This 115-nucleotide RNA sequence from Verticiella sediminum belongs to the Rfam family "Glycine riboswitch aptamer".
It scores 55 bits against the family's covariance model.
Lineage of the source: Bacteria > Pseudomonadota > Betaproteobacteria > Alcaligenaceae > Verticiella.
[Rfam]
RNA sequence: CGAACACAAACUGGAGAGCGCCGGGCCCGAACAGGGUAUGCGGCCGCCGAAGGGGCAAGCGCAGGGCCGGGUGGCCCGCGACGAAUCUCUCAGGCAAAAGGACAGUGGGGGCAGC
Number, nucleotide and partner (000 for none) at each position: 001c000002g000003a000004a000005c000006a000007c109008a000009a000010a106011c105012u104013g103014g000015a000016g000017a000018g000019c000020g044021c043022c042023g041024g000025g000026c000027c000028c000029g000030a000031a000032c000033a000034g000035g000036g000037u000038a000039u000040g000041c023042g022043g021044c020045c000046g095047c094048c093049g091050a090051a000052g000053g089054g088055g087056c000057a000058a000059g082060c000061g000062c000063a000064g000065g000066g000067c000068c000069g000070g000071g000072u000073g000074g000075c000076c000077c000078g000079c000080g000081a000082c059083g000084a000085a000086u000087c055088u054089c053090u050091c049092a000093g048094g047095c046096a000097a000098a000099a000100g000101g000102a000103c013104a012105g011106u010107g000108g000109g007110g000111g000112c000113a000114g000115c000